[Rfam]
RNA sequence: GGCGGAGUGGGUCUCUGGCACCGUGAUUUGAUUAAAAAAUCAAAAAACUUAAAUCACAUUGCCAGGGAUUUCCACUCUGUC
Numbered sequence: 001g002g003c004g005g006a007g008u009g010g011g012u013c014u015c016u017g018g019c020a021c022c023g024u025g026a027u028u029u030g031a032u033u034a035a036a037a038a039a040u041c042a043a044a045a046a047a048c049u050u051a052a053a054u055c056a057c058a059u060u061g062c063c064a065g066g067g068a069u070u071u072c073c074a075c076u077c078u079g080u081c
Stems, first nucleotide, its partner, number of pairs: 001081002004078003008074003011069010023057009
Notes:
Shown here is an 81-nucleotide sequence from Anguilla anguilla, a member of the family "mir-23 microRNA precursor family". The source organism's lineage runs through Eukaryota, Eumetazoa, Deuterostomia, Elopomorpha and Anguilla. The literature on the family includes a 2005 paper in Genes Dev by Chen et al., "The developmental miRNA profiles of zebrafish as determined by small RNA cloning".